[Rfam]
RNA sequence: UGGCCAGUAGUGGAUGCAUUUUAUGUAGUUUCUCAUUUGCUGUAGACAUGACCAUAAAAAAUUUUCCCACUAGGUUUUCUAAAUGCUACCUUGUUAGCCAGCAAUGAAUCUAUUGGGAAUAGAC
Numbered sequence: 001u002g003g004c005c006a007g008u009a010g011u012g013g014a015u016g017c018a019u020u021u022u023a024u025g026u027a028g029u030u031u032c033u034c035a036u037u038u039g040c041u042g043u044a045g046a047c048a049u050g051a052c053c054a055u056a057a058a059a060a061a062u063u064u065u066c067c068c069a070c071u072a073g074g075u076u077u078u079c080u081a082a083a084u085g086c087u088a089c090c091u092u093g094u095u096a097g098c099c100a101g102c103a104a105u106g107a108a109u110c111u112a113u114u115g116g117g118a119a120u121a122g123a124c
Base pairs, nucleotide, nucleotide: 003052005050006049011044012043025040026039027038028037066117067116068115069114073110074109075108076107084103085102086101
Overview: A member of the RNA family "Small nucleolar RNA SNORA32" from Castor canadensis, 124 nucleotides long. A search with the family's covariance model found it, with a score of 74 bits. ACA32 is a member of the H/ACA class of snoRNA that guide the sites of modification of uridines to pseudouridines. The family has 9 seed sequences and 615 matches in Rfam 15.1. It is annotated as an H/ACA-box small nucleolar RNA. The source organism's lineage runs through Eukaryota, Deuterostomia, Euteleostomi, Sarcopterygii and Castor.